[Rfam]
RNA sequence: AUCACCUUGGUGUAGUGGUUUAGCAUGCGCGCUUCCCAAGCGCGAGGUCGCGAGUUCGAUCCUCGCAGGUGAUA
Numbered sequence: 001a002u003c004a005c006c007u008u009g010g011u012g013u014a015g016u017g018g019u020u021u022a023g024c025a026u027g028c029g030c031g032c033u034u035c036c037c038a039a040g041c042g043c044g045a046g047g048u049c050g051c052g053a054g055u056u057c058g059a060u061c062c063u064c065g066c067a068g069g070u071g072a073u074a
Base pairs, nucleotide, nucleotide: 001073002072003071004070005069006068007067010026011025012024013023028044029043030042031041032040050066051065052064053063054062